[Rfam]
RNA sequence: GGUCAAUGAUGUAAUGUAAAAGGUCUGAUGACCAGUUCCACUGCCUGCUAUCCAUUGGCUCCUAACAGCCCCUGCUCUAUUCCCAGCCUGCUCUAGUUGUGCAUUGUUGGACACAUGGGCUGCUGACAUAGAGAAUGACGUCACAUCCUGUGUCUUUAAGAGGCCAUGGAGUCACUGUGGUUCUGUUGGACGUCCGUCAAUCACUAAGGAGUAUCAGGAUGUGGUAUGGGGCUGGGCCGCUGAUCUCAACUUUUGAACUGAGACC
Numbered sequence: 001g002g003u004c005a006a007u008g009a010u011g012u013a014a015u016g017u018a019a020a021a022g023g024u025c026u027g028a029u030g031a032c033c034a035g036u037u038c039c040a041c042u043g044c045c046u047g048c049u050a051u052c053c054a055u056u057g058g059c060u061c062c063u064a065a066c067a068g069c070c071c072c073u074g075c076u077c078u079a080u081u082c083c084c085a086g087c088c089u090g091c092u093c094u095a096g097u098u099g100u101g102c103a104u105u106g107u108u109g110g111a112c113a114c115a116u117g118g119g120c121u122g123c124u125g126a127c128a129u130a131g132a133g134a135a136u137g138a139c140g141u142c143a144c145a146u147c148c149u150g151u152g153u154c155u156u157u158a159a160g161a162g163g164c165c166a167u168g169g170a171g172u173c174a175c176u177g178u179g180g181u182u183c184u185g186u187u188g189g190a191c192g193u194c195c196g197u198c199a200a201u202c203a204c205u206a207a208g209g210a211g212u213a214u215c216a217g218g219a220u221g222u223g224g225u226a227u228g229g230g231g232c233u234g235g236g237c238c239g240c241u242g243a244u245c246u247c248a249a250c251u252u253u254u255g256a257a258c259u260g261a262g263a264c265c
Stems, first nucleotide, its partner, number of pairs: 001265004034246002037243002041224004046219001048217001059211004063125002066122004083110005091101001133195001137194006150175003154171005